[Rfam]
RNA sequence: AUUUGAAUCCGGGCCCCUCUGGCGAGGACCCCGACCCAGGUCGGGCAACCUCGCGAUGUCGGAUCGCCGAU
Numbered sequence: 001a002u003u004u005g006a007a008u009c010c011g012g013g014c015c016c017c018u019c020u021g022g023c024g025a026g027g028a029c030c031c032c033g034a035c036c037c038a039g040g041u042c043g044g045g046c047a048a049c050c051u052c053g054c055g056a057u058g059u060c061g062g063a064u065c066g067c068c069g070a071u
Stems, first nucleotide, its partner, number of pairs: 007064006022054006
RNA: terC RNA